The family of this 171-nucleotide sequence from Saccharibacillus sacchari is "c-di-AMP riboswitch aptamer (ydaO/yuaA leader)". Its family is annotated with regulation of gene expression and cyclic-di-AMP binding in the Gene Ontology.
RNA sequence: AAGUUACAACUGCUGAAUUUGUACUCGGAAACGGGGGAACCGAUCGGGAGUCCGCACGCGGCUCUCAUGGGGUGAAGCCUUUCGCGCAGCCGAUCACGGUUUUGCGGCAGGCGGGGCGACUCUUGCGUCCCAAUCCGUCAGCUAACCUCGUAAGCAGAAACAGGAGAGGUG
Numbered sequence: 001a002a003g004u005u006a007c008a009a010c011u012g013c014u015g016a017a018u019u020u021g022u023a024c025u026c027g028g029a030a031a032c033g034g035g036g037g038a039a040c041c042g043a044u045c046g047g048g049a050g051u052c053c054g055c056a057c058g059c060g061g062c063u064c065u066c067a068u069g070g071g072g073u074g075a076a077g078c079c080u081u082u083c084g085c086g087c088a089g090c091c092g093a094u095c096a097c098g099g100u101u102u103u104g105c106g107g108c109a110g111g112c113g114g115g116g117c118g119a120c121u122c123u124u125g126c127g128u129c130c131c132a133a134u135c136c137g138u139c140a141g142c143u144a145a146c147c148u149c150g151u152a153a154g155c156a157g158a159a160a161c162a163g164g165a166g167a168g169g170u171g
Stems, first nucleotide, its partner, number of pairs: 011156004018030003031151006041069002070136003078111003114130004
The match comes from Rfam's covariance-model search (77 bits).